[Rfam]
RNA sequence: GAAUGAAAAUGAUGAAUAUAAGGAAGAGUGAUGAUCAAUUUUUUCAAGUGAUCCAAAAACAUAUCCUUAUUUCGCUACGUUCUUUCUGAUUCAUUC
Numbered sequence: 001g002a003a004u005g006a007a008a009a010u011g012a013u014g015a016a017u018a019u020a021a022g023g024a025a026g027a028g029u030g031a032u033g034a035u036c037a038a039u040u041u042u043u044u045c046a047a048g049u050g051a052u053c054c055a056a057a058a059a060c061a062u063a064u065c066c067u068u069a070u071u072u073c074g075c076u077a078c079g080u081u082c083u084u085u086c087u088g089a090u091u092c093a094u095u096c
Stems, first nucleotide, its partner, number of pairs: 004093004
A member of the RNA family "Small nucleolar RNA R32/R81/Z41" from Anisodus acutangulus, 96 nucleotides long.
On this family, see Barneche et al., J Mol Biol 2001: "Identification of 66 box C/D snoRNAs in Arabidopsis thaliana: extensive gene duplications generated multiple isoforms predicting new ribosomal RNA 2'-O-methylation sites".
NCBI's taxonomy places the organism under Eukaryota, Viridiplantae, Streptophyta, asterids, Anisodus.